[Rfam]
RNA sequence: GCUAUAUGAUGAUACUCCCAGUGACUGAACACUCUGUACUUGGUCCAUGGGGUGCAUAUGAUGUACUGCACUGUUUCAAGACGGGACUGAUGGCAGC
Number, nucleotide and partner (000 for none) at each position: 001g094002c093003u092004a091005u000006a000007u000008g000009a000010u000011g000012a000013u000014a000015c000016u000017c000018c000019c000020a000021g000022u000023g000024a000025c000026u000027g000028a000029a000030c000031a000032c000033u000034c000035u000036g000037u000038a000039c000040u000041u000042g000043g000044u000045c000046c000047a000048u000049g000050g000051g000052g000053u000054g000055c000056a000057u000058a000059u000060g000061a000062u000063g000064u000065a000066c000067u000068g000069c000070a000071c000072u000073g000074u000075u000076u000077c000078a000079a000080g000081a000082c000083g000084g000085g000086a000087c000088u000089g000090a000091u004092g003093g002094c001095a000096g000097c000